Rfam assigns this 116-nucleotide RNA sequence from Phytophthora ramorum to the family "U5 spliceosomal RNA".
[Rfam]
RNA sequence: UUCCGCAAAAUUAACUACAUUCGUAUUAAUCUUUCGCCUUUUACUAAAGAUUACCGUGUGGUUGGUUUACUAAAUGCGGCUUCAACCAAUUUCUGUGCCCCUCCUUGCGAGGGGAA
Dot-bracket structure: ..((((..(((((((((((.......((((((((...........))))))))...)))))))))))........))))..................(((((.......)))))..